[Rfam]
RNA sequence: CAUUCCUUUCGGGGCGGGGUGUAAUUCCCCACCGGCGGUGAUAGCGCGGCUUACACAAGCUUAUCUUGCAAUGCGCUUCAGUCCGUGACCCGUUUUGAAGCUUCUAGCGGCACCUGACGACAGCUUCGCUACGGCUGAUCCGGUGAAAUUCCGGGACCGACAGUUAUAGUCUGGAUGGGAGAAAGGAAAC
Numbered sequence: 001c002a003u004u005c006c007u008u009u010c011g012g013g014g015c016g017g018g019g020u021g022u023a024a025u026u027c028c029c030c031a032c033c034g035g036c037g038g039u040g041a042u043a044g045c046g047c048g049g050c051u052u053a054c055a056c057a058a059g060c061u062u063a064u065c066u067u068g069c070a071a072u073g074c075g076c077u078u079c080a081g082u083c084c085g086u087g088a089c090c091c092g093u094u095u096u097g098a099a100g101c102u103u104c105u106a107g108c109g110g111c112a113c114c115u116g117a118c119g120a121c122a123g124c125u126u127c128g129c130u131a132c133g134g135c136u137g138a139u140c141c142g143g144u145g146a147a148a149u150u151c152c153g154g155g156a157c158c159g160a161c162a163g164u165u166a167u168a169g170u171c172u173g174g175a176u177g178g179g180a181g182a183a184a185g186g187a188a189a190c
Stems, first nucleotide, its partner, number of pairs: 003188008017029003031170002033159002035086004090134004139155005161173003

Shown here is a 190-nucleotide sequence from Paenibacillus athensensis, a member of the family "FMN riboswitch aptamer (RFN element)".
Rfam's curators write: The RFN element is a highly conserved domain that is found frequently in the 5'-untranslated regions of prokaryotic mRNAs that encode for flavin mononucleotide (FMN) biosynthesis and transport proteins.
A search with the family's covariance model found it, with a score of 103 bits.